Rfam assigns this 72-nucleotide RNA from Halalkalibaculum roseum to the family "tRNA". Pairs were carried over by alignment from the consensus structure, which is taken from published work. NCBI's taxonomy places the organism under Bacteria, Pseudomonadati, Balneolia, Balneolales, Halalkalibaculum. The match comes from Rfam's covariance-model search (71 bits).

RNA sequence: GCCGAAGUAGCUCAGGGGUAGAGCAACGCUCUCGUAAAGCGUAGGUCGUCGGUUCAAAUCCGAUCUUCGGCU
Dot-bracket structure: (((((((..((((.......)))).(((((.......))))).....(((((.......)))))))))))).
Numbered sequence: 001g002c003c004g005a006a007g008u009a010g011c012u013c014a015g016g017g018g019u020a021g022a023g024c025a026a027c028g029c030u031c032u033c034g035u036a037a038a039g040c041g042u043a044g045g046u047c048g049u050c051g052g053u054u055c056a057a058a059u060c061c062g063a064u065c066u067u068c069g070g071c072u
Stems, first nucleotide, its partner, number of pairs: 001071007010024004026042005048064005